[Rfam]
Annotation:
Rfam assigns this 100-nucleotide sequence from Parazoarcus communis to the family "TPP riboswitch aptamer (THI element)". Vitamin B(1) in its active form thiamin pyrophosphate (TPP) is an essential coenzyme that is synthesised by coupling of pyrimidine and thiazole moieties in bacteria. Rfam links the family to the GO term thiamine pyrophosphate binding. It scores 69 bits against the family's covariance model. The organism belongs to Parazoarcus communis, within Bacteria.
Nucleotides: 100
Base pairs, nucleotide, nucleotide: 007087008086009085010084011050012049013048014047016044017037018036019035020034021033022032023031024030056081057080058079059078062075063074064073065072
Number, partner (000 for none) and nucleotide at each position: 001000a002000c003000c004000u005000g006000c007087c008086g009085u010084u011050g012049g013048g014047g015000g016044u017037g018036c019035c020034c021033g022032c023031g024030c025000a026000u027000g028000u029000g030024g031023u032022g033021c034020g035019g036018g037017c038000u039000g040000a041000g042000a043000g044016a045000g046000a047014c048013c049012c050011u051000u052000c053000g054000a055000a056081c057080c058079u059078g060000a061000c062075c063074c064073g065072g066000u067000u068000u069000g070000u071000a072065c073064c074063g075062g076000c077000g078059u079058a080057g081056g082000g083000a084010a085009a086008c087007g088000c089000a090000a091000c092000c093000a094000u095000g096000u097000c098000g099000u100000c